This 85-nucleotide sequence from Streptococcus ferus belongs to the Rfam family "Glycine riboswitch aptamer".

RNA sequence: GGACGGACUUCUGGAGAGACCUUAACGGCGCCGAAGGGGCAAGGCAAACGCUCAAACUCUCAGGCAAAAGGACAGAAGAUGAGGA
Numbered sequence: 001g002g003a004c005g006g007a008c009u010u011c012u013g014g015a016g017a018g019a020c021c022u023u024a025a026c027g028g029c030g031c032c033g034a035a036g037g038g039g040c041a042a043g044g045c046a047a048a049c050g051c052u053c054a055a056a057c058u059c060u061c062a063g064g065c066a067a068a069a070g071g072a073c074a075g076a077a078g079a080u081g082a083g084g085a
Stems, first nucleotide, its partner, number of pairs: 006080001008078006020028002030065003033061002037059003043053002

Taxonomically the source falls in Streptococcus (Bacteria, Bacillota, Bacilli, Streptococcaceae).